[Rfam]
RNA sequence: AACUAAUGAUGAUUAAAUAUAAGAGUAGUGGACAAAAGUGAUUUCUGAAAUCUGCAUUACUGAAGUU
Number, nucleotide and partner (000 for none) at each position: 001a067002a066003c065004u064005a000006a000007u000008g000009a000010u000011g000012a000013u000014u000015a000016a000017a000018u000019a000020u000021a000022a000023g000024a000025g000026u000027a000028g000029u000030g000031g000032a000033c000034a000035a000036a000037a000038g000039u000040g000041a000042u000043u000044u000045c000046u000047g000048a000049a000050a000051u000052c000053u000054g000055c000056a000057u000058u000059a000060c000061u000062g000063a000064a004065g003066u002067u001
RNA: Small nucleolar RNA SNORD75